[Rfam]
RNA sequence: UGUAUCACUGAUGAUAAUUUGGCUCCCUCUACUGAAAUCUGUGAGGAGAUUGCCACUGUUACCCAAUAUUUGUCUGAGAUAUG
Numbered sequence: 001u002g003u004a005u006c007a008c009u010g011a012u013g014a015u016a017a018u019u020u021g022g023c024u025c026c027c028u029c030u031a032c033u034g035a036a037a038u039c040u041g042u043g044a045g046g047a048g049a050u051u052g053c054c055a056c057u058g059u060u061a062c063c064c065a066a067u068a069u070u071u072g073u074c075u076g077a078g079a080u081a082u083g
Stems, first nucleotide, its partner, number of pairs: 001083006
RNA: Small nucleolar RNA SNORD100